[Rfam]
RNA sequence: UGGCCGAGGAUGAAAACAACAAUCUGAUUCCAUACUUUCAGUGAUACGCAACAAUCUGAUGGAUUAAAGGAUUUUCUGAGGCCA
Dot-bracket structure: .((((..........................................................................)))).
Numbered sequence: 001u002g003g004c005c006g007a008g009g010a011u012g013a014a015a016a017c018a019a020c021a022a023u024c025u026g027a028u029u030c031c032a033u034a035c036u037u038u039c040a041g042u043g044a045u046a047c048g049c050a051a052c053a054a055u056c057u058g059a060u061g062g063a064u065u066a067a068a069g070g071a072u073u074u075u076c077u078g079a080g081g082c083c084a
Stems, first nucleotide, its partner, number of pairs: 002083004

The record is an 84-nucleotide sequence from Rhinopomastus cyanomelas, which matches "Small nucleolar RNA SNORD93" in Rfam. The family's RNA type in Rfam is C/D-box small nucleolar RNA. The match comes from Rfam's covariance-model search (64 bits).